[Rfam]
Shown here is a 403-nucleotide RNA from Candidatus Brocadia fulgida, a member of the family "Bacterial RNase P class A". A search with the family's covariance model found it, with a score of 281 bits.
RNA sequence: AAAGUAGACAAGGCGGUCGUCGGCUCUUUUUUUUAAGUAAAAAGGGCGGGAGGAAAGUCCGAGCUCCACAGGACACAGUGCUCCGUAACGCGGAGUCCCGGCAACGGGAAGGAAAGUGCAACAGAAAAUAUACCGUUCCAUUUUUUAGUGGAAUAAGGGUGAAAUGGCGGGGUCGUUUCCCCGGUAAAAAGUCCGGGUCUGAACUGACUUAAUGUAAGAGCCCACCGCUCCGGUGGUGACAUCGGAGGCAUGGCAAACCCCACUGGGAGAAAGGUUAAAUAGAGAGGGAUGAAGUGGUCCGCUUCGGUAGCACCUCUGGGUAAACCGUUUGAUCUCGCUGGCAACGACGAGACUAGAUAAAUGACCGCCCACGACAGAACUCGGCUUAUUGUCUACUUAAAAA
Numbered sequence: 001a002a003a004g005u006a007g008a009c010a011a012g013g014c015g016g017u018c019g020u021c022g023g024c025u026c027u028u029u030u031u032u033u034u035a036a037g038u039a040a041a042a043a044g045g046g047c048g049g050g051a052g053g054a055a056a057g058u059c060c061g062a063g064c065u066c067c068a069c070a071g072g073a074c075a076c077a078g079u080g081c082u083c084c085g086u087a088a089c090g091c092g093g094a095g096u097c098c099c100g101g102c103a104a105c106g107g108g109a110a111g112g113a114a115a116g117u118g119c120a121a122c123a124g125a126a127a128a129u130a131u132a133c134c135g136u137u138c139c140a141u142u143u144u145u146u147a148g149u150g151g152a153a154u155a156a157g158g159g160u161g162a163a164a165u166g167g168c169g170g171g172g173u174c175g176u177u178u179c180c181c182c183g184g185u186a187a188a189a190a191g192u193c194c195g196g197g198u199c200u201g202a203a204c205u206g207a208c209u210u211a212a213u214g215u216a217a218g219a220g221c222c223c224a225c226c227g228c229u230c231c232g233g234u235g236g237u238g239a240c241a242u243c244g245g246a247g248g249c250a251u252g253g254c255a256a257a258c259c260c261c262a263c264u265g266g267g268a269g270a271a272a273g274g275u276u277a278a279a280u281a282g283a284g285a286g287g288g289a290u291g292a293a294g295u296g297g298u299c300c301g302c303u304u305c306g307g308u309a310g311c312a313c314c315u316c317u318g319g320g321u322a323a324a325c326c327g328u329u330u331g332a333u334c335u336c337g338c339u340g341g342c343a344a345c346g347a348c349g350a351g352a353c354u355a356g357a358u359a360a361a362u363g364a365c366c367g368c369c370c371a372c373g374a375c376a377g378a379a380c381u382c383g384g385c386u387u388a389u390u391g392u393c394u395a396c397u398u399a400a401a402a403a
Stems, first nucleotide, its partner, number of pairs: 002398010012369007020050002023047009055387003059384005064269004071300004076265005081095005096110001097108004111260002116258002118254002133158002135154008166226002169223003227249001228247008273326004283317005291305005333352005339346002